[Rfam]
RNA sequence: GCCCUCGUAUCCCAAUUGGCAGAGGAAACGGAUUCAAAACCCGUACAGUGUGAGUUCGAGUCUCACCGAGGGCA
Numbered sequence: 001g002c003c004c005u006c007g008u009a010u011c012c013c014a015a016u017u018g019g020c021a022g023a024g025g026a027a028a029c030g031g032a033u034u035c036a037a038a039a040c041c042c043g044u045a046c047a048g049u050g051u052g053a054g055u056u057c058g059a060g061u062c063u064c065a066c067c068g069a070g071g072g073c074a
Base pairs, nucleotide, nucleotide: 001073002072003071004070005069006068007067010026011025012024028044029043030042031041050066051065052064053063054062
Dot-bracket structure: (((((((..(((...........))).((((.........)))).....(((((.......)))))))))))).
A member of the RNA family "tRNA" from Rhodococcus sp. WMMA185, 74 nucleotides long. Rfam classes the family as a transfer RNA.